RNA sequence: AGGAGCCUCAAGCCAAUAAAGAUUGAGAGGGUUGACUUAAAGAACAA
Numbered sequence: 001a002g003g004a005g006c007c008u009c010a011a012g013c014c015a016a017u018a019a020a021g022a023u024u025g026a027g028a029g030g031g032u033u034g035a036c037u038u039a040a041a042g043a044a045c046a047a
Stems, first nucleotide, its partner, number of pairs: 007042002010038003014034004
A member of the RNA family "Plastid-rpl16 group II-D1 intron" from Acer saccharum, 47 nucleotides long.
It scores 48 bits against the family's covariance model.
A reference for the family is Richter et al. (2023), "Retrograde signaling in plants: A critical review focusing on the GUN pathway and beyond", Plant Commun.
Plastid-rpl16 is a non-coding RNA (ncRNA) recognised in plastids. It was recognised in and intronic region of a ribosome rpl16 gene.
The family's consensus secondary structure was predicted with LocARNA.
The organism belongs to Acer, within Eukaryota.